[Rfam]
RNA sequence: GUUAUUUGAGGUGGAGGAGUUCGUACAGUCCACACGCCGAUGGUACUGACAGGAGCAAUCCGAGGGACGCAGGAGAAGUGUACGCCUGCCAAAUGAC
Number, nucleotide and partner (000 for none) at each position: 001g097002u096003u095004a094005u093006u092007u091008g090009a000010g000011g033012u032013g031014g030015a029016g000017g000018a000019g000020u000021u000022c000023g083024u082025a081026c080027a079028g000029u015030c014031c013032a012033c011034a000035c064036g044037c043038c042039g000040a000041u000042g038043g037044u036045a000046c000047u000048g000049a000050c000051a000052g000053g000054a000055g000056c000057a000058a000059u000060c000061c000062g000063a000064g035065g000066g000067a000068c000069g089070c088071a087072g086073g085074a000075g000076a000077a000078g000079u027080g026081u025082a024083c023084g000085c073086c072087u071088g070089c069090c008091a007092a006093a005094u004095g003096a002097c001

The record is a 97-nucleotide RNA from Ruminococcus sp. CAG:403, which matches "skipping-rope RNA" in Rfam.